[Rfam]
Nucleotides: 078
Stems, first nucleotide, its partner, number of pairs: 025046003029043004048070010
Number, partner (000 for none) and nucleotide at each position: 001000a002000u003000u004000a005000c006000c007000c008000a009000u010000c011000g012000u013000g014000a015000u016000g017000u018000g019000g020000u021000u022000a023000u024000u025046g026045c027044a028000a029043u030042c031041a032040a033000u034000a035000a036000g037000u038000u039000a040032u041031u042030g043029a044027u045026g046025c047000a048070a049069g050068g051067g052066g053065c054064a055063a056062u057061a058000u059000a060000u061057u062056g063055u064054u065053g066052c067051c068050c069049u070048u071000u072000u073000u074000u075000a076000u077000u078000u
Background: Rfam assigns this 78-nucleotide sequence from Klebsiella variicola to the family "ABC transporter regulator". The base pairs follow the family's consensus structure, which is taken from published work. The family's RNA type in Rfam is cis-regulatory element. The source organism's lineage runs through Bacteria, Pseudomonadati, Pseudomonadota, Enterobacterales and Klebsiella variicola. Rfam's curators put it in the seed alignment.